Background:
This 70-nucleotide sequence from Lederbergia galactosidilytica belongs to the Rfam family "Bacillaceae-1 RNA". The base pairs follow the family's consensus structure, which is taken from published work. The family has 95 seed sequences and 5,721 matches in Rfam 15.1.
Nucleotides: 070
Stems, first nucleotide, its partner, number of pairs: 011053002014050004025043005056070005
Number, partner (000 for none) and nucleotide at each position: 001000u002000u003000u004000g005000g006000u007000g008000g009000a010000a011053c012052a013000u014050c015049g016048g017047c018000u019000a020000a021000g022000g023000u024000c025043g026042c027041u028040a029039c030000g031000u032000c033000c034000a035000u036000c037000c038000u039029g040028u041027g042026g043025c044000a045000a046000c047017g048016c049015c050014g051000c052012u053011g054000a055000a056070c057069u058068u059067a060066c061000a062000u063000c064000c065000u066060g067059u068058g069057a070056g

It is annotated as a small RNA.